[Rfam]
RNA: Bacterial large subunit ribosomal RNA, nucleotides 2613 to 2874
RNA sequence: AGAGAUUUGAGGGGAGUUGCUCCUAGUACGAGAGGACCGGAGUGAACACACCGCUGGUCUCCCUGCUGUCGUACCAACGGCACAUGCAGGGUAGCUAUGUGUGGAACGGAUAACCGCUGAAAGCAUCUAAGCGGGAAGCCAGCCCCAAGAUGAGAUCUCUCUCUACCUCAGGUAGGUAAGACUCCCGGUAGACCACCGGGUUAAGAGGCCAGGCGUGCAAGCACAGCAAUGUGUUGAGCGGACUGGUGCUCAUCAGUCGAGG
Numbered sequence: 001a002g003a004g005a006u007u008u009g010a011g012g013g014g015a016g017u018u019g020c021u022c023c024u025a026g027u028a029c030g031a032g033a034g035g036a037c038c039g040g041a042g043u044g045a046a047c048a049c050a051c052c053g054c055u056g057g058u059c060u061c062c063c064u065g066c067u068g069u070c071g072u073a074c075c076a077a078c079g080g081c082a083c084a085u086g087c088a089g090g091g092u093a094g095c096u097a098u099g100u101g102u103g104g105a106a107c108g109g110a111u112a113a114c115c116g117c118u119g120a121a122a123g124c125a126u127c128u129a130a131g132c133g134g135g136a137a138g139c140c141a142g143c144c145c146c147a148a149g150a151u152g153a154g155a156u157c158u159c160u161c162u163c164u165a166c167c168u169c170a171g172g173u174a175g176g177u178a179a180g181a182c183u184c185c186c187g188g189u190a191g192a193c194c195a196c197c198g199g200g201u202u203a204a205g206a207g208g209c210c211a212g213g214c215g216u217g218c219a220a221g222c223a224c225a226g227c228a229a230u231g232u233g234u235u236g237a238g239c240g241g242a243c244u245g246g247u248g249c250u251c252a253u254c255a256g257u258c259g260a261g262g
Base pairs, nucleotide, nucleotide: 001160002159003158004157005156006155007154008153011146012145013144014143017045018044019043020042021041022040023039047103048102049101050100051099055097056096057095062090063089064088065087066086067082068081069080070079071078072077108140109139114134115133116132117131118130163175164174165173177260180258181257182256183255184200185199186198187197188196205251206250207249208247209246210245211244212243214240215239221234222233223232224231225230